Rfam assigns this 100-nucleotide RNA from Planococcus massiliensis to the family "Guanidine-I riboswitch aptamer".
A reference for the family is Trachman RJ 3rd and Ferre-D'Amare (2021), "An uncommon [K(+)(Mg(2+))2] metal ion triad imparts stability and selectivity to the Guanidine-I riboswitch", RNA.
The base pairs follow the family's consensus structure.
RNA sequence: AGAAAUGUUUUCUAGGGUUCCGCAGCCUGUGUGCUGGCCUGGUCCGAGAGAAAACUCAUAGCUUUUCGCUAUGCCACGGAAGGACAAAAGCCUGGGAGAA
Dot-bracket structure: ......((((((..((...(((((((......))))..).)).))....)))))).((((((.....)))))).(.[...(((.......))).)..]..